Rfam assigns this 45-nucleotide sequence to the family "L31-Firmicutes ribosomal protein leader". Rfam's curators put it in the seed alignment. The family's RNA type in Rfam is cis-regulatory leader. The family is grouped with related families in Rfam's "Ribosomal Protein L31 Leader clan".
RNA sequence: CUCUGGUUCGACAUGAUGAUGUCCAAGGAGCCAGGGCGGAAAGAG
Numbered sequence: 001c002u003c004u005g006g007u008u009c010g011a012c013a014u015g016a017u018g019a020u021g022u023c024c025a026a027g028g029a030g031c032c033a034g035g036g037c038g039g040a041a042a043g044a045g
Stems, first nucleotide, its partner, number of pairs: 001036008